[Rfam]
RNA sequence: UGCUUAUGACGGUUAUUUUUUUGUGCCAACUUGACUGGGCCACUGAUUGCCCAGAGAUUUGGUA
Number, nucleotide and partner (000 for none) at each position: 001u064002g063003c062004u061005u000006a000007u000008g000009a000010c000011g000012g000013u000014u000015a000016u000017u000018u000019u000020u000021u000022u000023g000024u000025g000026c000027c000028a000029a000030c000031u000032u000033g000034a000035c000036u000037g000038g000039g000040c000041c000042a000043c000044u000045g000046a000047u000048u000049g000050c000051c000052c000053a000054g000055a000056g000057a000058u000059u000060u000061g004062g003063u002064a001